This 479-nucleotide part of an RNA from Nocardioides jishulii belongs to the Rfam family "Bacterial large subunit ribosomal RNA". The family's consensus secondary structure is taken from published work.

RNA sequence: GAAUGAAAUGCGAGAAACAUUUCCGCCGAAUGAUCAAGGGUUCCAGGGUCAAGCUAAUCUGCCCUGGGUAAGUCGGGACCUAAGGCGAGGCCGACAGGCGUAGUCGAUGGACAACGGGUUGAUAUUCCCGUACCGGCGAAGUAGCGCCCAUGACGAGGCUGGUGAUGCUAACCGUCCGAAGCGCCGUGAUCUGAUCCCUUCGGGGUGAGGACGUGUGUGUGGAGCGCGGGAACCGAUCCAGUAGUAGUCAAGCGAUGGGGUGACGCAGGAAGGUAGUCCAACCGUGGCGAUGGUAGACCACGGCUAAGGGUGUAGGACUGACGGUAGGCAAAUCCGCCGUCUGUAUGUCUGAGACCUGAUGGGGAGCCAUUAGUGGUGAAGUGGAUGAUCCUAUGCUGUCGAGAAAAACCUCUAGCGAGCUAUGAGCCGCCCGUACCCCAAACCGACUCAGGUGAUCAGGUAGAGAAUACUAAGGCGAU
Number, nucleotide and partner (000 for none) at each position: 001g000002a000003a000004u000005g023006a022007a021008a020009u019010g018011c000012g000013a000014g000015a000016a000017a000018c010019a009020u008021u007022u006023c005024c477025g476026c475027c474028g000029a000030a000031u000032g457033a456034u455035c454036a000037a000038g437039g436040g000041u000042u000043c067044c066045a065046g064047g063048g062049u000050c000051a000052a060053g059054c000055u000056a000057a000058u000059c053060u052061g000062c048063c047064c046065u045066g044067g043068g000069u000070a000071a000072g000073u000074c433075g432076g431077g430078a000079c110080c109081u000082a000083a000084g105085g104086c103087g000088a101089g000090g099091c098092c097093g000094a000095c000096a000097g092098g091099c090100g000101u088102a000103g086104u085105c084106g000107a000108u000109g080110g079111a000112c000113a000114a000115c235116g234117g233118g000119u000120u000121g000122a000123u000124a000125u000126u000127c000128c000129c000130g000131u000132a000133c000134c000135g000136g000137c000138g000139a000140a000141g000142u000143a000144g000145c000146g000147c000148c000149c000150a000151u000152g000153a000154c000155g000156a000157g000158g000159c000160u000161g000162g000163u000164g000165a000166u000167g000168c000169u000170a000171a000172c000173c000174g000175u000176c000177c000178g000179a000180a000181g000182c000183g000184c000185c000186g000187u000188g000189a000190u000191c000192u000193g000194a000195u000196c000197c000198c000199u000200u000201c000202g000203g000204g000205g000206u000207g000208a000209g000210g000211a000212c000213g000214u000215g000216u000217g000218u000219g000220u000221g000222g000223a000224g000225c000226g000227c000228g000229g000230g000231a000232a000233c117234c116235g115236a000237u000238c000239c429240a000241g427242u422243a421244g420245u000246a000247g000248u000249c000250a000251a000252g416253c415254g000255a000256u000257g412258g411259g410260g409261u408262g000263a000264c000265g399266c398267a397268g396269g000270a000271a392272g391273g390274u000275a000276g386277u385278c384279c383280a382281a000282c303283c302284g301285u300286g299287g298288c000289g000290a000291u000292g000293g000294u000295a000296g000297a000298c287299c286300a285301c284302g283303g282304c362305u361306a000307a000308g357309g356310g355311u354312g000313u000314a000315g350316g349317a348318c000319u000320g341321a340322c339323g338324g337325u336326a000327g335328g334329c000330a000331a000332a000333u000334c328335c327336g325337c324338c323339g322340u321341c320342u000343g000344u000345a000346u000347g000348u317349c316350u315351g000352a000353g000354a311355c310356c309357u308358g000359a000360u000361g305362g304363g000364g000365a000366g377367c376368c375369a374370u000371u000372a000373g000374u369375g368376g367377u366378g000379a000380a000381g000382u280383g279384g278385a277386u276387g000388a000389u000390c273391c272392u271393a000394u000395g000396c268397u267398g266399u265400c000401g000402a000403g000404a000405a000406a000407a000408a261409c260410c259411u258412c257413u000414a000415g253416c252417g000418a000419g000420c244421u243422a242423u000424g000425a000426g000427c241428c000429g239430c077431c076432c075433g074434u000435a000436c039437c038438c000439c000440a000441a000442a000443c452444c451445g000446a000447c000448u000449c000450a000451g444452g443453u000454g035455a034456u033457c032458a000459g471460g470461u469462a468463g000464a000465g000466a000467a000468u462469a461470c460471u459472a000473a000474g027475g026476c025477g024478a000479u000